RNA sequence: AUAAAUGACUUUACAUUUUGCAUACCCCGUUACUAUUGGGGGCAAGAUAGUAGGCUCUCUAUGUGCCAUUGCCGGAGUGCUAACGAUUGCACUUCCAGUGCCUGUGAUCGUGUCCAAC
Numbered sequence: 001a002u003a004a005a006u007g008a009c010u011u012u013a014c015a016u017u018u019u020g021c022a023u024a025c026c027c028c029g030u031u032a033c034u035a036u037u038g039g040g041g042g043c044a045a046g047a048u049a050g051u052a053g054g055c056u057c058u059c060u061a062u063g064u065g066c067c068a069u070u071g072c073c074g075g076a077g078u079g080c081u082a083a084c085g086a087u088u089g090c091a092c093u094u095c096c097a098g099u100g101c102c103u104g105u106g107a108u109c110g111u112g113u114c115c116a117a118c
Stems, first nucleotide, its partner, number of pairs: 005111004012106004020101002024099002041081004053067003
Dot-bracket structure: ....((((...((((....((..((...............((((........(((.........)))..........))))................)))).)))).)))).......

Description
Rfam assigns this 118-nucleotide sequence from Sinocyclocheilus rhinocerous to the family "Potassium channel RNA editing signal". Pairs were carried over by alignment from the consensus structure, which is taken from published work. It scores 66 bits against the family's covariance model. Taxonomically the source falls in Sinocyclocheilus (Eukaryota, Vertebrata, Teleostei, Cyprinidae). This family represents a group of sequences related to the human potassium channel Kv1.1 hairpin element which directs the efficient modification of an adenosine to inosine by an adenosine deaminase acting on RNA (ADAR). The ADAR modification causes an isoleucine/valine recoding event which lies in the ion-conducting pore of the potassium channel. It is thought that this editing event targets the process of fast inactivation and allows a more rapid recovery from inactivation at negative potentials. Gene Ontology term of the family: adenosine to inosine editing.